This 141-nucleotide RNA sequence from Byssothecium circinans belongs to the Rfam family "U4 spliceosomal RNA". Rfam 15.1 lists 32,178 matches to the family in 2,547 species. Pairs were carried over by alignment from the consensus structure, which is taken from published work. Gene Ontology terms of the family: U4 snRNP and spliceosomal tri-snRNP complex assembly.
[Rfam]
RNA sequence: AUCUUAGUGCUCGGGCUGCAGAGCGUUGGCAAUGAGGAUUUGUCCGAGCCGCGCAAUGCUGGUUGAAAACUACCACCUGACCACUCUUGAUGGUCCUCGGACUGUCAAGGAAUUUUUGAAACCCUCCGCUCUUCAUUGAGC
Numbered sequence: 001a002u003c004u005u006a007g008u009g010c011u012c013g014g015g016c017u018g019c020a021g022a023g024c025g026u027u028g029g030c031a032a033u034g035a036g037g038a039u040u041u042g043u044c045c046g047a048g049c050c051g052c053g054c055a056a057u058g059c060u061g062g063u064u065g066a067a068a069a070c071u072a073c074c075a076c077c078u079g080a081c082c083a084c085u086c087u088u089g090a091u092g093g094u095c096c097u098c099g100g101a102c103u104g105u106c107a108a109g110g111a112a113u114u115u116u117u118g119a120a121a122c123c124c125u126c127c128g129c130u131c132u133u134c135a136u137u138g139a140g141c
Stems, first nucleotide, its partner, number of pairs: 024053003028050003036045003085110011124140003